[Rfam]
RNA sequence: ACUUUUAAAGUAAAGUGAGUGUAGCGUGGCUAUAACUCUUCUUUUACUUUAACUAGCCUUGUGCUAGAUUUGUCUUCGGACACCAACUCGAACUAAACGAAAUAUUUGUCUCUCUAUGAAACCAUAGAAGACAAGCGUUGAUUAUUUCACCAGUUUGGCAAUCACUCCUAGGAACGGGGUUGAGAGAACGGCGCACCAGGGUUCCGUCCCUGUUUGGUAAGUCGUCUAGUAUUAGCUGCGGCGGUUCCGCCCGUCGUAGUUGGGUAGACCGGGUUCCGUCCUGUGAUCUCCCUCGCCGGCCGCCAGGAGAAUGAGUUCCA
Numbered sequence: 001a002c003u004u005u006u007a008a009a010g011u012a013a014a015g016u017g018a019g020u021g022u023a024g025c026g027u028g029g030c031u032a033u034a035a036c037u038c039u040u041c042u043u044u045u046a047c048u049u050u051a052a053c054u055a056g057c058c059u060u061g062u063g064c065u066a067g068a069u070u071u072g073u074c075u076u077c078g079g080a081c082a083c084c085a086a087c088u089c090g091a092a093c094u095a096a097a098c099g100a101a102a103u104a105u106u107u108g109u110c111u112c113u114c115u116a117u118g119a120a121a122c123c124a125u126a127g128a129a130g131a132c133a134a135g136c137g138u139u140g141a142u143u144a145u146u147u148c149a150c151c152a153g154u155u156u157g158g159c160a161a162u163c164a165c166u167c168c169u170a171g172g173a174a175c176g177g178g179g180u181u182g183a184g185a186g187a188a189c190g191g192c193g194c195a196c197c198a199g200g201g202u203u204c205c206g207u208c209c210c211u212g213u214u215u216g217g218u219a220a221g222u223c224g225u226c227u228a229g230u231a232u233u234a235g236c237u238g239c240g241g242c243g244g245u246u247c248c249g250c251c252c253g254u255c256g257u258a259g260u261u262g263g264g265u266a267g268a269c270c271g272g273g274u275u276c277c278g279u280c281c282u283g284u285g286a287u288c289u290c291c292c293u294c295g296c297c298g299g300c301c302g303c304c305a306g307g308a309g310a311a312u313g314a315g316u317u318c319c320a
Stems, first nucleotide, its partner, number of pairs: 007050006013043003020034006053067005099148006106134006113128006160317003165309005171301002175298001176296001178294002184225001186223002195214001197212005239256006262291002270283004
RNA: Alphacoronavirus 5'UTR
Organism: Alphacoronavirus suis